Shown here is a 99-nucleotide RNA sequence from Pseudescherichia vulneris, a member of the family "Guanidine-I riboswitch aptamer". The base pairs follow the family's consensus structure. Taxonomically the source falls in Pseudescherichia vulneris (Bacteria, Pseudomonadota, Enterobacterales, Enterobacteriaceae).
RNA sequence: AAAAUGGCUGGCUAGGGUUCCGGUUCAUCGCUGAUGAAUGCUGGUCCGAGAGCUGGCGACCUCUCUGAGGUUACACGGCGGGACAAAAGCCCGGGAGAC
Numbered sequence: 001a002a003a004a005u006g007g008c009u010g011g012c013u014a015g016g017g018u019u020c021c022g023g024u025u026c027a028u029c030g031c032u033g034a035u036g037a038a039u040g041c042u043g044g045u046c047c048g049a050g051a052g053c054u055g056g057c058g059a060c061c062u063c064u065c066u067g068a069g070g071u072u073a074c075a076c077g078g079c080g081g082g083a084c085a086a087a088a089g090c091c092c093g094g095g096a097g098a099c
Stems, first nucleotide, its partner, number of pairs: 007057006015047002020044002022041001023039006058072006074094001076097001080092003